This 72-nucleotide RNA from Alligator mississippiensis belongs to the Rfam family "Mammalian CPEB3 ribozyme". The organism belongs to Alligator, within Eukaryota.
RNA sequence: CAAGCUCAAGGGCAUAGCAGAAGCACCCACUGUGCAGCCUGGCAGAUUCCAAUGAAAUCUGUGAAUUCUGCU
Number, nucleotide and partner (000 for none) at each position: 001c000002a000003a000004g000005c000006u000007c000008a000009a000010g039011g038012g000013c000014a000015u000016a072017g071018c070019a069020g068021a067022a066023g035024c034025a033026c000027c000028c000029a000030c000031u000032g000033u025034g024035c023036a000037g000038c011039c010040u000041g000042g000043c061044a060045g059046a058047u057048u056049c000050c000051a000052a000053u000054g000055a000056a048057a047058u046059c045060u044061g043062u000063g000064a000065a000066u022067u021068c020069u019070g018071c017072u016